Rfam assigns this 85-nucleotide sequence from Aotus nancymaae to the family "mir-515 microRNA precursor family".
[Rfam]
RNA sequence: UCCCAUGCUGUGACCCUCUCGAGGGAAGCACUUUCUAUUGUCUGCAAAAAAAAGGCGCUUCUCUUGAGAGUGUUACGGUUUGAGG
Number, nucleotide and partner (000 for none) at each position: 001u085002c084003c000004c082005a081006u000007g079008c078009u077010g076011u075012g074013a073014c072015c000016c070017u069018c068019u000020c066021g065022a064023g063024g062025g061026a060027a059028g058029c057030a000031c055032u054033u053034u052035c000036u000037a000038u050039u049040g000041u000042c000043u000044g000045c000046a000047a000048a000049a039050a038051a000052a034053a033054g032055g031056c000057g029058c028059u027060u026061c025062u024063c023064u022065u021066g020067a000068g018069a017070g016071u000072g014073u013074u012075a011076c010077g009078g008079u007080u000081u005082g004083a000084g002085g001
Its family is annotated with RISC complex and miRNA-mediated post-transcriptional gene silencing in the Gene Ontology.